[Rfam]
RNA sequence: AGGUGGGUUUUAAGUAAGGUAUGAGAAACUUUACUCGGCCUCUAGCAAAGUGAACCUUUUGCUUAAAAUCAUCAAAUUGACGGGAACACCUUAAAGCUAUUUCAACUAAAAGUAUUAGGAAACUAAUAUAUGGCUCAGGUAAUGACUUGAGGUAUAGUAAAAUCGAAAUAGAUGCACGAAAGUAAAUAGGUAAUCCGCAGCCAACCACCUAAUAGUAUUAUUUUCAUCAUAAGUAAAGGUGGGCAGUUCAUCGACUAAACGGUGAUUGGUCUUAAAAUUCCCUAUUUUAAUGCUUAAAAUAUAGUCAGACCCUACUUGAAAAAGUACA
Numbered sequence: 001a002g003g004u005g006g007g008u009u010u011u012a013a014g015u016a017a018g019g020u021a022u023g024a025g026a027a028a029c030u031u032u033a034c035u036c037g038g039c040c041u042c043u044a045g046c047a048a049a050g051u052g053a054a055c056c057u058u059u060u061g062c063u064u065a066a067a068a069u070c071a072u073c074a075a076a077u078u079g080a081c082g083g084g085a086a087c088a089c090c091u092u093a094a095a096g097c098u099a100u101u102u103c104a105a106c107u108a109a110a111a112g113u114a115u116u117a118g119g120a121a122a123c124u125a126a127u128a129u130a131u132g133g134c135u136c137a138g139g140u141a142a143u144g145a146c147u148u149g150a151g152g153u154a155u156a157g158u159a160a161a162a163u164c165g166a167a168a169u170a171g172a173u174g175c176a177c178g179a180a181a182g183u184a185a186a187u188a189g190g191u192a193a194u195c196c197g198c199a200g201c202c203a204a205c206c207a208c209c210u211a212a213u214a215g216u217a218u219u220a221u222u223u224u225c226a227u228c229a230u231a232a233g234u235a236a237a238g239g240u241g242g243g244c245a246g247u248u249c250a251u252c253g254a255c256u257a258a259a260c261g262g263u264g265a266u267u268g269g270u271c272u273u274a275a276a277a278u279u280c281c282c283u284a285u286u287u288u289a290a291u292g293c294u295u296a297a298a299a300u301a302u303a304g305u306c307a308g309a310c311c312c313u314a315c316u317u318g319a320a321a322a323a324g325u326a327c328a
Base pairs, nucleotide, nucleotide: 012020067267068266069265070264071263073261078199079198081197082196083195084194089190090189091188200247201246205242206241207240208239213235214234216232251307253306254305255304256303257302269293270292272290273289274288275287276286277285313326314325315324316323317322
The record is a 328-nucleotide RNA sequence from Rutstroemia sp. NJR-2017a BBW, which matches "Group I catalytic intron" in Rfam. On this family, see Cech, Annu Rev Biochem 1990: "Self-splicing of group I introns". Group I catalytic introns are large self-splicing ribozymes.